A member of the RNA family "U7 small nuclear RNA" from Salmo trutta, 56 nucleotides long. A search with the family's covariance model found it, with a score of 36 bits. The source organism's lineage runs through Eukaryota, Actinopteri, Teleostei, Salmoninae and Salmo. The base pairs follow the family's consensus structure, which was predicted with PFOLD.

[Rfam]
RNA sequence: UGGAAAAUCUGCUCUUUAGUAUUUCUCCAGUAGGUUUCCUCAAGGAGAAAGCCCCA
Numbered sequence: 001u002g003g004a005a006a007a008u009c010u011g012c013u014c015u016u017u018a019g020u021a022u023u024u025c026u027c028c029a030g031u032a033g034g035u036u037u038c039c040u041c042a043a044g045g046a047g048a049a050a051g052c053c054c055c056a
Base pairs, nucleotide, nucleotide: 033053034052035051036050037049039047040046041045